[Rfam]
RNA sequence: UGAUGACAUUCUCCGGAAUCACUGUACUGCUUUGAUGAAAGUACCUUUGAACCCUUUUCCAUCUGAUGACUGUGGGGAGAAAAAAAGUUAUU
Numbered sequence: 001u002g003a004u005g006a007c008a009u010u011c012u013c014c015g016g017a018a019u020c021a022c023u024g025u026a027c028u029g030c031u032u033u034g035a036u037g038a039a040a041g042u043a044c045c046u047u048u049g050a051a052c053c054c055u056u057u058u059c060c061a062u063c064u065g066a067u068g069a070c071u072g073u074g075g076g077g078a079g080a081a082a083a084a085a086a087g088u089u090a091u092u
Base pairs, nucleotide, nucleotide: 002092003091004090005089006088

The record is a 92-nucleotide sequence from Dasypus novemcinctus, which matches "Small nucleolar RNA MBII-202" in Rfam. It is annotated as a C/D-box small nucleolar RNA. NCBI's taxonomy places the organism under Eukaryota, Metazoa, Dipnotetrapodomorpha, Amniota, Dasypus.